[Rfam]
RNA sequence: UAGCCAAAUACUGUAUUUUUUAUCAACAUUUGGUUGAAAAACAUCUGUGUAUUAGUAAACCUGUGUUGUUCAAGAGUCCGCUGUGCUUUGCUG
Number, nucleotide and partner (000 for none) at each position: 001u093002a092003g091004c090005c000006a088007a087008a000009u085010a084011c083012u000013g081014u080015a077016u076017u075018u074019u073020u072021u000022a070023u000024c068025a067026a066027c065028a064029u063030u000031u000032g061033g060034u059035u058036g000037a000038a000039a000040a053041a052042c000043a050044u049045c000046u000047g000048u000049g044050u043051a000052u041053u040054a000055g000056u000057a000058a035059a034060c033061c032062u000063g029064u028065g027066u026067u025068g024069u000070u022071c000072a020073a019074g018075a017076g016077u015078c000079c000080g014081c013082u000083g011084u010085g009086c000087u007088u006089u000090g004091c003092u002093g001
This 93-nucleotide RNA sequence from Macaca mulatta belongs to the Rfam family "mir-649 microRNA precursor family". The sequence is in the family's curated seed alignment. Taxonomically the source falls in Macaca (Eukaryota, Eumetazoa, Euarchontoglires, Simiiformes). Gene Ontology terms of the family: miRNA-mediated post-transcriptional gene silencing and RISC complex. The family's consensus secondary structure was predicted with RNAalifold.